[Rfam]
RNA sequence: GGUGGAGGCUUCCAAAGGGAUCGCAUUGAUCUAAUUAUAUCGAAACUUUGAUCGGUAUUUUUUUGGCUGUUUUAGUUCAUCUAUUGGAUCAUGCGAUCCCUUAGGAAUUUUCCAU
Numbered sequence: 001g002g003u004g005g006a007g008g009c010u011u012c013c014a015a016a017g018g019g020a021u022c023g024c025a026u027u028g029a030u031c032u033a034a035u036u037a038u039a040u041c042g043a044a045a046c047u048u049u050g051a052u053c054g055g056u057a058u059u060u061u062u063u064u065g066g067c068u069g070u071u072u073u074a075g076u077u078c079a080u081c082u083a084u085u086g087g088a089u090c091a092u093g094c095g096a097u098c099c100c101u102u103a104g105g106a107a108u109u110u111u112c113c114a115u
Base pairs, nucleotide, nucleotide: 002115003114004113005112006111008109010107011106012105013104015102016101017100018099019098020097021096023094024093025092026091028090029089030088031087032086036083

Description: The family of this 115-nucleotide RNA sequence from Rhamnella rubrinervis is "mir-393 microRNA precursor family". Lineage of the source: Eukaryota > Streptophyta > Tracheophyta > rosids > Rhamnella. It scores 96 bits against the family's covariance model. On this family, see Kruszka et al., J Plant Physiol 2012: "Role of microRNAs and other sRNAs of plants in their changing environments". The base pairs follow the family's consensus structure.